[Rfam]
RNA sequence: ACUUAAAGAUAUAAUCUAUCUGUCGAUAGAGUCCUUAUCUUUUUAGACUUUCCAGUCUACUCUUCUCAACUAAACGAAAUUUACGUCUUUUUGUGUAUGCUACGCAUGCACAAUUAGAUGUGUAUUUGAGAUUUCGUUCCAGGUUGCCAGCCUUGUGUAACAAGUGUCGUGCUUCUAGGGGUUGCACUUGACGUGUUCCGUCACGUACUUGUGUCCUUAGUUGCCCCACGCUGUUCUGUCAGUGUGGUGUGUGGAUAUAGUGUUCCGUCACUAUUGAAACCGAUAACUGUGCACAAUGUCUAUCAACCAAUUGACACUUGCAG
Numbered sequence: 001a002c003u004u005a006a007a008g009a010u011a012u013a014a015u016c017u018a019u020c021u022g023u024c025g026a027u028a029g030a031g032u033c034c035u036u037a038u039c040u041u042u043u044u045a046g047a048c049u050u051u052c053c054a055g056u057c058u059a060c061u062c063u064u065c066u067c068a069a070c071u072a073a074a075c076g077a078a079a080u081u082u083a084c085g086u087c088u089u090u091u092u093g094u095g096u097a098u099g100c101u102a103c104g105c106a107u108g109c110a111c112a113a114u115u116a117g118a119u120g121u122g123u124a125u126u127u128g129a130g131a132u133u134u135c136g137u138u139c140c141a142g143g144u145u146g147c148c149a150g151c152c153u154u155g156u157g158u159a160a161c162a163a164g165u166g167u168c169g170u171g172c173u174u175c176u177a178g179g180g181g182u183u184g185c186a187c188u189u190g191a192c193g194u195g196u197u198c199c200g201u202c203a204c205g206u207a208c209u210u211g212u213g214u215c216c217u218u219a220g221u222u223g224c225c226c227c228a229c230g231c232u233g234u235u236c237u238g239u240c241a242g243u244g245u246g247g248u249g250u251g252u253g254g255a256u257a258u259a260g261u262g263u264u265c266c267g268u269c270a271c272u273a274u275u276g277a278a279a280c281c282g283a284u285a286a287c288u289g290u291g292c293a294c295a296a297u298g299u300c301u302a303u304c305a306a307c308c309a310a311u312u313g314a315c316a317c318u319u320g321c322a323g
Base pairs, nucleotide, nucleotide: 005042006041007040008039009038010037011035015030016029017028018027019026020025044059045058046057047056048055076135077134078133079132080131081130082129084122085121086120088118089117091113092112093111094110095109096108097107098106144306145305146304151298153296154295155294156293157292158291160290161289163288164287165285166284167283168282169281178217179216180215189207191206192205193204194203195202225247227246228245229244230243231242232241233240251280252279257274258273259272260271261270262269